[Rfam]
RNA sequence: CUCAACACACGCGGGAGCUUGCGCCACAGCGGGCUGAGAGGGCGGCUGGAGACAGGACUCCGGUGCCGCCGACCGCCUGAACCUGACCGGGUAAUGCCGGCGUAGGGAGGAAUGUCGUGACGGCAC
Numbered sequence: 001c002u003c004a005a006c007a008c009a010c011g012c013g014g015g016a017g018c019u020u021g022c023g024c025c026a027c028a029g030c031g032g033g034c035u036g037a038g039a040g041g042g043c044g045g046c047u048g049g050a051g052a053c054a055g056g057a058c059u060c061c062g063g064u065g066c067c068g069c070c071g072a073c074c075g076c077c078u079g080a081a082c083c084u085g086a087c088c089g090g091g092u093a094a095u096g097c098c099g100g101c102g103u104a105g106g107g108a109g110g111a112a113u114g115u116c117g118u119g120a121c122g123g124c125a126c
Base pairs, nucleotide, nucleotide: 006114007113010110011076012075013074014073017034018033019032020031021030041070042069043068044067045066082106083105084104085103087100088099089098090097